[Rfam]
RNA: Caenorhabditis snoRNA ceN69
Organism: Caenorhabditis elegans
RNA sequence: ACAGGAUGAUGAGUCACUCGCUGAGUGACAAUAAGCCGAGUGUUAGCGGUUUUUAUGUAAUCGUGAUGAUCAUUCCCUCAAAAGCGAUAAUUGUGAACUGACUGU
Numbered sequence: 001a002c003a004g005g006a007u008g009a010u011g012a013g014u015c016a017c018u019c020g021c022u023g024a025g026u027g028a029c030a031a032u033a034a035g036c037c038g039a040g041u042g043u044u045a046g047c048g049g050u051u052u053u054u055a056u057g058u059a060a061u062c063g064u065g066a067u068g069a070u071c072a073u074u075c076c077c078u079c080a081a082a083a084g085c086g087a088u089a090a091u092u093g094u095g096a097a098c099u100g101a102c103u104g105u
Base pairs, nucleotide, nucleotide: 001105002104003103004102